[Rfam]
RNA: Small nucleolar RNA snoR77
Organism: Cucumis sativus
RNA sequence: AGGCAGCCCCUAUGCAAUUUCCAUGGCAUUGGAGGCGUUAAACUGCUCGUAGAUCGAAUUGCUUAUGCUCUUCAGACUUGCUGAGGUUUCCUCUGAAGCUGGUCUAGUAAGCCUAAGUACAUU
Numbered sequence: 001a002g003g004c005a006g007c008c009c010c011u012a013u014g015c016a017a018u019u020u021c022c023a024u025g026g027c028a029u030u031g032g033a034g035g036c037g038u039u040a041a042a043c044u045g046c047u048c049g050u051a052g053a054u055c056g057a058a059u060u061g062c063u064u065a066u067g068c069u070c071u072u073c074a075g076a077c078u079u080g081c082u083g084a085g086g087u088u089u090c091c092u093c094u095g096a097a098g099c100u101g102g103u104c105u106a107g108u109a110a111g112c113c114u115a116a117g118u119a120c121a122u123u
Stems, first nucleotide, its partner, number of pairs: 002039003007035002009032002012029004017024001062117003067112003074105005080099003085091002